Source information
Shown here is a 127-nucleotide sequence from Phtheirospermum japonicum, a member of the family "Small nucleolar RNA snoR136". Pairs were carried over by alignment from the consensus structure, which was predicted with mfold. The family's RNA type in Rfam is H/ACA-box small nucleolar RNA. Taxonomically the source falls in Phtheirospermum (Eukaryota, Streptophytina, Gunneridae, asterids).
[Rfam]
RNA sequence: UUGCUUUACUCAUAUAGUAUCAUGCCAUGCAAUUUAUGUGUUGCAUAAUUACAAGUGAAGCUAGAACAAUGUUCCCCUCUAUCCGGUGAUGCUCCAUAGCUCAUUUGGACGUUGGGGAACUACACAA
Numbered sequence: 001u002u003g004c005u006u007u008a009c010u011c012a013u014a015u016a017g018u019a020u021c022a023u024g025c026c027a028u029g030c031a032a033u034u035u036a037u038g039u040g041u042u043g044c045a046u047a048a049u050u051a052c053a054a055g056u057g058a059a060g061c062u063a064g065a066a067c068a069a070u071g072u073u074c075c076c077c078u079c080u081a082u083c084c085g086g087u088g089a090u091g092c093u094c095c096a097u098a099g100c101u102c103a104u105u106u107g108g109a110c111g112u113u114g115g116g117g118a119a120c121u122a123c124a125c126a127a
Stems, first nucleotide, its partner, number of pairs: 001064002003061003008056003013051001014049002022046004027041002071120007079111001082109005091100003